[Rfam]
RNA: tRNA
RNA sequence: UCCCAAAUAGUCUAGGCGGUUAGGAUACGUGGCCUUCACCCACGCGACCCGGGUUCGAGUCCCGGUUUGGGAA
Numbered sequence: 001u002c003c004c005a006a007a008u009a010g011u012c013u014a015g016g017c018g019g020u021u022a023g024g025a026u027a028c029g030u031g032g033c034c035u036u037c038a039c040c041c042a043c044g045c046g047a048c049c050c051g052g053g054u055u056c057g058a059g060u061c062c063c064g065g066u067u068u069g070g071g072a073a
Stems, first nucleotide, its partner, number of pairs: 001072007010026004028044005049065005
Dot-bracket structure: (((((((..((((.........)))).(((((.......)))))....(((((.......)))))))))))).